RNA sequence: UGCCAUGAUGGUGUAAUUUGCGUCUGAUCCGUUGAGCAGCGACAGUUGCCUGCUGUCUUUUAGCUGUCAAGGGGUAUUGAUGUGUACUAAAUUCUGAGCA
Numbered sequence: 001u002g003c004c005a006u007g008a009u010g011g012u013g014u015a016a017u018u019u020g021c022g023u024c025u026g027a028u029c030c031g032u033u034g035a036g037c038a039g040c041g042a043c044a045g046u047u048g049c050c051u052g053c054u055g056u057c058u059u060u061u062a063g064c065u066g067u068c069a070a071g072g073g074g075u076a077u078u079g080a081u082g083u084g085u086a087c088u089a090a091a092u093u094c095u096g097a098g099c100a
Stems, first nucleotide, its partner, number of pairs: 001100003021082004030072001032070003039064002041057005
Background:
Small nucleolar RNA SNORD16: a 100-nucleotide sequence from Channa argus. Pairs were carried over by alignment from the consensus structure, which was predicted with PFOLD. By type it is a C/D-box small nucleolar RNA.